[Rfam]
RNA sequence: CGAGCCAACUACAGUUAAGGAACUCUGCAAAUUAACUCUGUAACUUAGGGAGAAAGAGUGCCCUAUCAGGAAGAUAGGGUCACAGUAAAGAACGAGGGCGGACUGUUUAACAAAAACACAGCUAUAUGCAAAAUUCGAAUAUGAAGUAUAUGUGGCGACACCUGCCCGGUGCCAGAAGGUCAAAGAAGGUUGUUAGGCUAGUUUACUAGCUGAAGCUUCUAACUUAAGCCCUGGUGAACGGCGGCCGUAACUAUAACGGUCCUAAGGUAGCGAAAUUCCUUGUCAGGUAAAUUCUGUCCCGCUUGAAUGGUGUAACCAGCUCUUGACUGUCUCGACUGUAGGCUCG
Numbered sequence: 001c002g003a004g005c006c007a008a009c010u011a012c013a014g015u016u017a018a019g020g021a022a023c024u025c026u027g028c029a030a031a032u033u034a035a036c037u038c039u040g041u042a043a044c045u046u047a048g049g050g051a052g053a054a055a056g057a058g059u060g061c062c063c064u065a066u067c068a069g070g071a072a073g074a075u076a077g078g079g080u081c082a083c084a085g086u087a088a089a090g091a092a093c094g095a096g097g098g099c100g101g102a103c104u105g106u107u108u109a110a111c112a113a114a115a116a117c118a119c120a121g122c123u124a125u126a127u128g129c130a131a132a133a134u135u136c137g138a139a140u141a142u143g144a145a146g147u148a149u150a151u152g153u154g155g156c157g158a159c160a161c162c163u164g165c166c167c168g169g170u171g172c173c174a175g176a177a178g179g180u181c182a183a184a185g186a187a188g189g190u191u192g193u194u195a196g197g198c199u200a201g202u203u204u205a206c207u208a209g210c211u212g213a214a215g216c217u218u219c220u221a222a223c224u225u226a227a228g229c230c231c232u233g234g235u236g237a238a239c240g241g242c243g244g245c246c247g248u249a250a251c252u253a254u255a256a257c258g259g260u261c262c263u264a265a266g267g268u269a270g271c272g273a274a275a276u277u278c279c280u281u282g283u284c285a286g287g288u289a290a291a292u293u294c295u296g297u298c299c300c301g302c303u304u305g306a307a308u309g310g311u312g313u314a315a316c317c318a319g320c321u322c323u324u325g326a327c328u329g330u331c332u333c334g335a336c337u338g339u340a341g342g343c344u345c346g
Base pairs, nucleotide, nucleotide: 001346002345003344004343009341010340011339012338013337014336015335016334018332019331020330035059036058037057038056039055044049060080061079062078063077064076065075066074067073081085093325094324095323096322097321098320099319100317101316104118105117106116121156122155123154124153125152126151127150128149129146133142134141159312160311161310162309164242165241166240169239170238171235172234173233174232175231178230179229180228184224185223188220189219192216193215196211197210198209199208200207201206243261244260245259246258247257248256262266272299282298284296285295286294287293
Rfam assigns this 346-nucleotide part of an RNA from Mycoplasma suis to the family "Bacterial large subunit ribosomal RNA". NCBI's taxonomy places the organism under Bacteria, Bacillati, Mollicutes, Mycoplasmataceae, Mycoplasma suis.